[Rfam]
RNA sequence: AUGGAAGGCUUUUGGCAUGCAUCUCUCCAUGGAUCUUGAAAAGAAGCAAUUUGGCUAUAUGGGGACGGAGAGGGAUUCCCCCCGCUCCUCAUGAAACAUCUAAUCAGUUUGCCGGGACACUAACCAAAAGCAUCACCACCGUCGGGCCGCAUCGGAGGAGGAGAUCGAAAUUAGCAGAGAUGGGAGGUUUUUGGGUAUUGCCCUGGCAAACCGGCAAGUCACACAACGGCUUUCAAGGCUUUUAAUUAUCAGGUCUU
Numbered sequence: 001a002u003g004g005a006a007g008g009c010u011u012u013u014g015g016c017a018u019g020c021a022u023c024u025c026u027c028c029a030u031g032g033a034u035c036u037u038g039a040a041a042a043g044a045a046g047c048a049a050u051u052u053g054g055c056u057a058u059a060u061g062g063g064g065a066c067g068g069a070g071a072g073g074g075a076u077u078c079c080c081c082c083c084g085c086u087c088c089u090c091a092u093g094a095a096a097c098a099u100c101u102a103a104u105c106a107g108u109u110u111g112c113c114g115g116g117a118c119a120c121u122a123a124c125c126a127a128a129a130g131c132a133u134c135a136c137c138a139c140c141g142u143c144g145g146g147c148c149g150c151a152u153c154g155g156a157g158g159a160g161g162a163g164a165u166c167g168a169a170a171u172u173a174g175c176a177g178a179g180a181u182g183g184g185a186g187g188u189u190u191u192u193g194g195g196u197a198u199u200g201c202c203c204u205g206g207c208a209a210a211c212c213g214g215c216a217a218g219u220c221a222c223a224c225a226a227c228g229g230c231u232u233u234c235a236a237g238g239c240u241u242u243u244a245a246u247u248a249u250c251a252g253g254u255c256u257u
Base pairs, nucleotide, nucleotide: 066093067092107211108210109209110208111207112206127199128198237255238254239253240252241251

Record summary: The record is a 257-nucleotide RNA sequence from Eucalyptus grandis, which matches "Early nodulin 40" in Rfam. It is annotated as a non-coding RNA gene. The match comes from Rfam's covariance-model search (89 bits).